[Rfam]
RNA sequence: GCAUGGUAAUGGAUUUAUGGCAGGCCCUUCUCUGUGGGUCUCUCAUAGUGUACCCAUGCCAGAGCAAACGGCAGCCUCGAACCAUGGCCCAGCCGCCUUCCUGUGGGCUGUGAGCGCUGAACGGGGCUGUACAGGG
Numbered sequence: 001g002c003a004u005g006g007u008a009a010u011g012g013a014u015u016u017a018u019g020g021c022a023g024g025c026c027c028u029u030c031u032c033u034g035u036g037g038g039u040c041u042c043u044c045a046u047a048g049u050g051u052a053c054c055c056a057u058g059c060c061a062g063a064g065c066a067a068a069c070g071g072c073a074g075c076c077u078c079g080a081a082c083c084a085u086g087g088c089c090c091a092g093c094c095g096c097c098u099u100c101c102u103g104u105g106g107g108c109u110g111u112g113a114g115c116g117c118u119g120a121a122c123g124g125g126g127c128u129g130u131a132c133a134g135g136g
Base pairs, nucleotide, nucleotide: 001059002058003057004056005054006053007052008051015048016047017046018045019044020043022041023040024039025037026036072129073128074127075126076125077124083119084118088114090110091109092108093107094106
RNA: Small nucleolar RNA SNORA42/SNORA80 family